Source information: The record is a 120-nucleotide RNA from Carlito syrichta, which matches "Small nucleolar RNA SNORA32" in Rfam. ACA32 is a member of the H/ACA class of snoRNA that guide the sites of modification of uridines to pseudouridines. By type it is an H/ACA-box small nucleolar RNA. NCBI's taxonomy places the organism under Eukaryota, Opisthokonta, Metazoa, Dipnotetrapodomorpha, Carlito.
RNA sequence: CUGACCUUACCAAGGCUCUUAGAAGGCAAAUUUUCAUUUGCUGUGGACAUGACCAUAACAAACUUUCCUCUAGACUUUCUAUCUGCUACCUUGCUAGCAAUCAGCCUAUUGGAAACUUUU
Numbered sequence: 001c002u003g004a005c006c007u008u009a010c011c012a013a014g015g016c017u018c019u020u021a022g023a024a025g026g027c028a029a030a031u032u033u034u035c036a037u038u039u040g041c042u043g044u045g046g047a048c049a050u051g052a053c054c055a056u057a058a059c060a061a062a063c064u065u066u067c068c069u070c071u072a073g074a075c076u077u078u079c080u081a082u083c084u085g086c087u088a089c090c091u092u093g094c095u096a097g098c099a100a101u102c103a104g105c106c107u108a109u110u111g112g113a114a115a116c117u118u119u120u
Stems, first nucleotide, its partner, number of pairs: 003053001005051001007049001010046003026041004066113003073106001075104002084099003